[Rfam]
RNA sequence: AGAGUACUGGUCUCAGCAGAUUGAGGAGAGCACCACAGUGGUCACCACACAGUCCACCGAGGCUGGAGCUGC
Numbered sequence: 001a002g003a004g005u006a007c008u009g010g011u012c013u014c015a016g017c018a019g020a021u022u023g024a025g026g027a028g029a030g031c032a033c034c035a036c037a038g039u040g041g042u043c044a045c046c047a048c049a050c051a052g053u054c055c056a057c058c059g060a061g062g063c064u065g066g067a068g069c070u071g072c
Stems, first nucleotide, its partner, number of pairs: 003070003007066008016057001019054005025046002028043002031040003
mir-622 microRNA precursor family: a 72-nucleotide RNA from Colobus angolensis. The match comes from Rfam's covariance-model search (87 bits). Its family is annotated with miRNA-mediated post-transcriptional gene silencing and RISC complex in the Gene Ontology. NCBI's taxonomy places the organism under Eukaryota, Metazoa, Deuterostomia, Colobus, Colobus angolensis.